ZMP/ZTP riboswitch aptamer (pfl RNA motif): an 80-nucleotide RNA sequence from Loigolactobacillus bifermentans.

[Rfam]
RNA sequence: ACAGUAGUAUAUGACUGACGGAAAAAGUGGAGUAACCACGUGAAGUAUACGAAAAAAUGCCGACCGUCUGGGCGAUGUCU
Number, nucleotide and partner (000 for none) at each position: 001a000002c000003a000004g000005u052006a000007g050008u049009a048010u047011a046012u045013g000014a000015c042016u000017g068018a067019c066020g065021g064022a000023a000024a000025a000026a000027g039028u038029g037030g036031a000032g000033u000034a000035a000036c030037c029038a028039c027040g000041u000042g015043a000044a000045g012046u011047a010048u009049a008050c007051g000052a005053a000054a000055a000056a000057a000058u074059g073060c072061c071062g000063a000064c021065c020066g019067u018068c017069u000070g000071g061072g060073c059074g058075a000076u000077g000078u000079c000080u000
A search with the family's covariance model found it, with a score of 56 bits.